[Rfam]
RNA sequence: UUGCUAGCUUCCGGCCUCGACUGCAGGGCGGCUUGCCGCUCGUGGUCGGAAACGGGUCAAGGUCUUGGGAGGAACCGAUUUUCUGGCGCUCUUGGAGCUGCCGCUUCCCCUGCGGAAGAGGACGAAAAUCACCCGUUUUGAAAUGGCAGGACUUCGGUCCUGCCAUUUUGC
Numbered sequence: 001u002u003g004c005u006a007g008c009u010u011c012c013g014g015c016c017u018c019g020a021c022u023g024c025a026g027g028g029c030g031g032c033u034u035g036c037c038g039c040u041c042g043u044g045g046u047c048g049g050a051a052a053c054g055g056g057u058c059a060a061g062g063u064c065u066u067g068g069g070a071g072g073a074a075c076c077g078a079u080u081u082u083c084u085g086g087c088g089c090u091c092u093u094g095g096a097g098c099u100g101c102c103g104c105u106u107c108c109c110c111u112g113c114g115g116a117a118g119a120g121g122a123c124g125a126a127a128a129u130c131a132c133c134c135g136u137u138u139u140g141a142a143a144u145g146g147c148a149g150g151a152c153u154u155c156g157g158u159c160c161u162g163c164c165a166u167u168u169u170g171c
Base pairs, nucleotide, nucleotide: 003171004170006168011049012048013047014046015045016044053135054134055133056132063073064072065071077130078129079128080127081126085102086101087100088098089097090096104121105120106119145164146163147162148161149160150159151158152157